[Rfam]
RNA sequence: ACACUACUAUGACCUAUGAAUUGACAGCCAGUCCCCCUCCUGUCUCCUGGCUGUCAGUUUUGUAGGGCACAAGUAUGU
Numbered sequence: 001a002c003a004c005u006a007c008u009a010u011g012a013c014c015u016a017u018g019a020a021u022u023g024a025c026a027g028c029c030a031g032u033c034c035c036c037c038u039c040c041u042g043u044c045u046c047c048u049g050g051c052u053g054u055c056a057g058u059u060u061u062g063u064a065g066g067g068c069a070c071a072a073g074u075a076u077g078u
Base pairs, nucleotide, nucleotide: 001078002077003076008071010069011068013066014065015064016063018060019059020058021057022056023055024054025053026052027051028050029049030048031047
The family of this 78-nucleotide RNA from Podarcis muralis is "mir-192/215 microRNA precursor family". About the family: This family represents the human microRNA (miRNA) precursors mir-192 and mir-215. Animal miRNAs are transcribed as ~70nt precursors and subsequently processed by the Dicer enzyme to give a ~22nt product. In this case the mature sequence comes from the 5' arm of the precursor. A search with the family's covariance model found it, with a score of 61 bits. Rfam links the family to the GO terms RISC complex and miRNA-mediated post-transcriptional gene silencing. Pairs were carried over by alignment from the consensus structure, which was predicted with PFOLD. A reference for the family is Lagos-Quintana et al. (2003), "New microRNAs from mouse and human", RNA.